[Rfam]
RNA sequence: CCACCUGCUUCACCUCCCUGAGCAGGGCCUUGCGUGUGAUGACAGCAUCAAGGCUUCGAACCCCGGCACUGCCGGGGUUUUUUUU
Numbered sequence: 001c002c003a004c005c006u007g008c009u010u011c012a013c014c015u016c017c018c019u020g021a022g023c024a025g026g027g028c029c030u031u032g033c034g035u036g037u038g039a040u041g042a043c044a045g046c047a048u049c050a051a052g053g054c055u056u057c058g059a060a061c062c063c064c065g066g067c068a069c070u071g072c073c074g075g076g077g078u079u080u081u082u083u084u085u
Stems, first nucleotide, its partner, number of pairs: 004026006027054006059079008
About this RNA
Shown here is an 85-nucleotide sequence from Inhella inkyongensis, a member of the family "Burkholderia RNA 7 (anti-hemB)". Rfam 15.1 lists 479 matches to the family in 458 species. About the family: This RNA motif was identified by computational search in b-proteobacteria Burkholderia. Co-purified with Hfq, expression confirmed by Northern blot. Rfam classes the family as a small RNA. NCBI's taxonomy places the organism under Bacteria, Pseudomonadati, Betaproteobacteria, Sphaerotilaceae, Inhella.